[Rfam]
RNA: Bacterial small signal recognition particle RNA
RNA sequence: GACUUGGACCUACGCAAUUACAACGCCCAAACCUUGUCAGGACCGGAAGGUAGCAGCAAUACGGGAUGCUUGUGAUAGGCGUGGACUCCGAGUCUUU
Numbered sequence: 001g002a003c004u005u006g007g008a009c010c011u012a013c014g015c016a017a018u019u020a021c022a023a024c025g026c027c028c029a030a031a032c033c034u035u036g037u038c039a040g041g042a043c044c045g046g047a048a049g050g051u052a053g054c055a056g057c058a059a060u061a062c063g064g065g066a067u068g069c070u071u072g073u074g075a076u077a078g079g080c081g082u083g084g085a086c087u088c089c090g091a092g093u094c095u096u097u
Stems, first nucleotide, its partner, number of pairs: 004091005010084005017076006026065003034059004042051003